The record is a 142-nucleotide sequence from Rhodnius prolixus, which matches "U4 spliceosomal RNA" in Rfam.

[Rfam]
RNA sequence: CAUCUUGCGCAGUGGCAAUAUCGUAACCAAUGAAGGUCUCCUGAGGUGCGAUUAUUGCUAGUUGGAAACUUUUAUUAUUAAUUAUUCGCAAAUGAUUUUUUGAAAACUUUUAUUUACCAAAUUUUUGUUUAACUCUCUGGUU
Number, nucleotide and partner (000 for none) at each position: 001c000002a000003u000004c000005u000006u000007g000008c000009g000010c000011a000012g000013u000014g000015g000016c000017a000018a000019u000020a052021u051022c050023g049024u048025a000026a047027c046028c045029a000030a000031u000032g000033a000034a042035g041036g040037u000038c000039u000040c036041c035042u034043g000044a000045g028046g027047u026048g024049c023050g022051a021052u020053u000054a000055u000056u000057g000058c000059u000060a000061g000062u000063u000064g000065g000066a000067a000068a000069c000070u000071u000072u000073u000074a000075u000076u000077a000078u000079u000080a000081a000082u000083u000084a000085u000086u119087c000088g117089c000090a115091a114092a113093u112094g111095a110096u000097u000098u105099u104100u000101u000102g000103a000104a099105a098106a000107c000108u000109u000110u095111u094112a093113u092114u091115u090116a000117c088118c000119a086120a000121a000122u000123u000124u000125u000126u000127g000128u000129u000130u000131a142132a141133c140134u139135c000136u000137c000138u000139g134140g133141u132142u131
The literature on the family includes a 2018 paper in Science by Bai et al., "Structures of the fully assembled Saccharomyces cerevisiae spliceosome before activation".
Rfam classes the family as a spliceosomal small nuclear RNA.
The organism belongs to Rhodnius, within Eukaryota.